Description
A member of the RNA family "FMN riboswitch aptamer (RFN element)" from Arsenicicoccus cauae, 133 nucleotides long. On this family, see Vitreschak et al., Nucleic Acids Res 2002: "Regulation of riboflavin biosynthesis and transport genes in bacteria by transcriptional and translational attenuation".
[Rfam]
RNA sequence: CACGUGCUCCGGGGUCGGUGCAAUUCCGAGCCGGCGGUGACAGUCCGCGACCCGACCACCUCUCCGAGGUGGGCGGCUGACCUGGUGGAACUCCAGGACCGACGGUGAAAGUCCGGAUGGGAGGCAGCACGCG
Numbered sequence: 001c002a003c004g005u006g007c008u009c010c011g012g013g014g015u016c017g018g019u020g021c022a023a024u025u026c027c028g029a030g031c032c033g034g035c036g037g038u039g040a041c042a043g044u045c046c047g048c049g050a051c052c053c054g055a056c057c058a059c060c061u062c063u064c065c066g067a068g069g070u071g072g073g074c075g076g077c078u079g080a081c082c083u084g085g086u087g088g089a090a091c092u093c094c095a096g097g098a099c100c101g102a103c104g105g106u107g108a109a110a111g112u113c114c115g116g117a118u119g120g121g122a123g124g125c126a127g128c129a130c131g132c133g
Base pairs, nucleotide, nucleotide: 003131004130005129006128007127008126009124010123016028017027018026030112031111032101033100034048035047036046037045043099044098052076053075081097082096083095084094085093103115104114105113
Background
The match comes from Rfam's covariance-model search (87 bits). Lineage of the source: Bacteria > Bacillati > Actinomycetota > Intrasporangiaceae > Arsenicicoccus.